The family of this 176-nucleotide RNA sequence from Thermosinus carboxydivorans is "Lysine riboswitch aptamer". The base pairs follow the family's consensus structure, which is taken from published work. The source organism's lineage runs through Bacteria, Bacillota, Selenomonadales, Sporomusaceae and Thermosinus carboxydivorans.

[Rfam]
Nucleotides: 176
Stems, first nucleotide, its partner, number of pairs: 006171006016078004021073002024071001033063006082111010112138005118132005140161007
Number, partner (000 for none) and nucleotide at each position: 001000u002000g003000c004000g005000a006171a007170g008169a009168u010167a011166g012000a013000g014000g015000u016078g017077c018076g019075g020000g021073c022072a023000a024071c025000a026000u027000g028000a029000g030000u031000a032000g033063c034062u035061c036060c037059g038058g039000g040000g041000a042000g043000a044000a045000g046000g047000g048000c049000a050000u051000c052000g053000c054000u055000g056000a057000a058038c059037c060036g061035g062034a063033g064000g065000g066000a067000a068000a069000g070000g071024g072022u073021g074000a075019c076018c077017g078016c079000c080000g081000a082111a083110g084109c085108g086107u087106g088105g089104c090103c091102g092000g093000c094000u095000g096000c097000c098000g099000a100000a101000g102091c103090g104089g105088c106087c107086a108085u109084g110083c111082u112138g113137g114136u115135c116134c117000u118132g119131c120130g121129u122128c123000g124000a125000a126000c127000a128122g129121g130120c131119g132118c133000c134116g135115g136114a137113c138112u139000g140161u141160c142159a143158c144157c145156a146155a147000u148000u149000g150000u151000g152000a153000a154000a155146u156145u157144g158143g159142u160141g161140g162000a163000g164000c165000g166011c167010u168009a169008u170007c171006u172000c173000a174000u175000c176000u